RNA sequence: CAGUGCACUGGUAGCUGAUGAACCAGGGGCGGUAGCGUG
Numbered sequence: 001c002a003g004u005g006c007a008c009u010g011g012u013a014g015c016u017g018a019u020g021a022a023c024c025a026g027g028g029g030c031g032g033u034a035g036c037g038u039g
Stems, first nucleotide, its partner, number of pairs: 008026005

This 39-nucleotide RNA from Salmonella enterica belongs to the Rfam family "JUMPstart RNA". It is annotated as a cis-regulatory element. The family has 128 seed sequences and 288 matches in Rfam 15.1.